[Rfam]
RNA sequence: AAUGGUUACUGAUACCGGAUACGGGCGUUGAGGGAACUCUACGCCCGUUCCGCAUGUUAAGGGUAUAUCAAAUGGC
Numbered sequence: 001a002a003u004g005g006u007u008a009c010u011g012a013u014a015c016c017g018g019a020u021a022c023g024g025g026c027g028u029u030g031a032g033g034g035a036a037c038u039c040u041a042c043g044c045c046c047g048u049u050c051c052g053c054a055u056g057u058u059a060a061g062g063g064u065a066u067a068u069c070a071a072a073u074g075g076c
Base pairs, nucleotide, nucleotide: 003017004016005015018050019049021048022047023046024045025044026043027042030039031038032037
Shown here is a 76-nucleotide RNA sequence from Providencia heimbachae, a member of the family "tpke11". In Yersinia located in ICR upstream dnaJ (chaperone)gene. Has temperature responsive RNA structure. Lineage of the source: Bacteria > Enterobacterales > Morganellaceae > Providencia > Providencia heimbachae. By type it is a small RNA. Pairs were carried over by alignment from the consensus structure, which was predicted with WAR. It scores 65 bits against the family's covariance model. A reference for the family is Hershberg et al. (2003), "A survey of small RNA-encoding genes in Escherichia coli", Nucleic Acids Res.